[Rfam]
RNA sequence: GAGUAAAGGAGAGACAGAGCCAGGGAAGAGGCAGUGCAUGGGUAGAGCAAAAACAGCUUAACAUUCUUCUGUUAAUAGUUCCAUCCAUGCACUACCUCGUCCCCGUCUUCCUCUUGUCUCCAUUUA
Numbered sequence: 001g002a003g004u005a006a007a008g009g010a011g012a013g014a015c016a017g018a019g020c021c022a023g024g025g026a027a028g029a030g031g032c033a034g035u036g037c038a039u040g041g042g043u044a045g046a047g048c049a050a051a052a053a054c055a056g057c058u059u060a061a062c063a064u065u066c067u068u069c070u071g072u073u074a075a076u077a078g079u080u081c082c083a084u085c086c087a088u089g090c091a092c093u094a095c096c097u098c099g100u101c102c103c104c105g106u107c108u109u110c111c112u113c114u115u116g117u118c119u120c121c122a123u124u125u126a
Stems, first nucleotide, its partner, number of pairs: 017109003021105001023103004029097003033093002036090006045081002
RNA: MIR408 microRNA precursor family